Rfam assigns this 101-nucleotide RNA sequence from Secundilactobacillus kimchicus to the family "TPP riboswitch aptamer (THI element)". A search with the family's covariance model found it, with a score of 66 bits. Lineage of the source: Bacteria > Bacilli > Lactobacillales > Secundilactobacillus > Secundilactobacillus kimchicus.
RNA sequence: AAUCGACACUAGGGGUGCCUUUUUGGCUGAGAUGGGCGUUGGUCCGAUCCCUUUGAACCUGUUAAGUUAAGACUUGCGAAGGAAAGUGGCUAUUAAGAUCG
Numbered sequence: 001a002a003u004c005g006a007c008a009c010u011a012g013g014g015g016u017g018c019c020u021u022u023u024u025g026g027c028u029g030a031g032a033u034g035g036g037c038g039u040u041g042g043u044c045c046g047a048u049c050c051c052u053u054u055g056a057a058c059c060u061g062u063u064a065a066g067u068u069a070a071g072a073c074u075u076g077c078g079a080a081g082g083a084a085a086g087u088g089g090c091u092a093u094u095a096a097g098a099u100c101g
Stems, first nucleotide, its partner, number of pairs: 007088004011052004016046001017027003034045004058082003063076004